[Rfam]
RNA: FMN riboswitch aptamer (RFN element)
RNA sequence: AAUUACCUUCGGGGCAGGGUGAGAGAGGAACAAUAAAAGUUCCUCUCAAUUCCCGACCGGCAGUGAUGGUAUCUCCAAAUAUGGGGAUACCUAAGCCUGCGAGCAAGCCUAAAGGGCUUGCAGAUCUGGUGAGAAUCCAGAGCCGACGGUAUAGUCCGGAUGGGAGAAGGUAAUU
Numbered sequence: 001a002a003u004u005a006c007c008u009u010c011g012g013g014g015c016a017g018g019g020u021g022a023g024a025g026a027g028g029a030a031c032a033a034u035a036a037a038a039g040u041u042c043c044u045c046u047c048a049a050u051u052c053c054c055g056a057c058c059g060g061c062a063g064u065g066a067u068g069g070u071a072u073c074u075c076c077a078a079a080u081a082u083g084g085g086g087a088u089a090c091c092u093a094a095g096c097c098u099g100c101g102a103g104c105a106a107g108c109c110u111a112a113a114g115g116g117c118u119u120g121c122a123g124a125u126c127u128g129g130u131g132a133g134a135a136u137c138c139a140g141a142g143c144c145g146a147c148g149g150u151a152u153a154g155u156c157c158g159g160a161u162g163g164g165a166g167a168a169g170g171u172a173a174u175u
Stems, first nucleotide, its partner, number of pairs: 003173008017054003056155002058145002060100004095143002103121003125141005147158003